[Rfam]
RNA sequence: ACUUAUUCUCAGGGCGGGGUGAAAGUCCCUACCGGCGGUAUCCCAGAGUAUCCUGGGGAGCCCGCGAGCGCUCUUGUCGUUCCCGGCAGGAGGUCAGCAGAUCUGGUAACAAGCCAGAGCCGACGGUAAUAGUCCGGAUGGAAGAGGAUAAGG
Numbered sequence: 001a002c003u004u005a006u007u008c009u010c011a012g013g014g015c016g017g018g019g020u021g022a023a024a025g026u027c028c029c030u031a032c033c034g035g036c037g038g039u040a041u042c043c044c045a046g047a048g049u050a051u052c053c054u055g056g057g058g059a060g061c062c063c064g065c066g067a068g069c070g071c072u073c074u075u076g077u078c079g080u081u082c083c084c085g086g087c088a089g090g091a092g093g094u095c096a097g098c099a100g101a102u103c104u105g106g107u108a109a110c111a112a113g114c115c116a117g118a119g120c121c122g123a124c125g126g127u128a129a130u131a132g133u134c135c136g137g138a139u140g141g142a143a144g145a146g147g148a149u150a151a152g153g
Base pairs, nucleotide, nucleotide: 003151004150005149006148007147008146009145010144017029018028019027031133032132033122034121035065036064037063038062060120061119068098069097102118103117104116105115106114124136125135126134
Shown here is a 153-nucleotide RNA sequence from Desulfotruncus arcticus, a member of the family "FMN riboswitch aptamer (RFN element)".
Taxonomically the source falls in Desulfotruncus arcticus (Bacteria, Bacillati, Eubacteriales, Desulfotruncus).
Its family is annotated with FMN binding in the Gene Ontology.
The RFN element is a highly conserved domain that is found frequently in the 5'-untranslated regions of prokaryotic mRNAs that encode for flavin mononucleotide (FMN) biosynthesis and transport proteins.
The family's consensus secondary structure is taken from published work.
It scores 110 bits against the family's covariance model.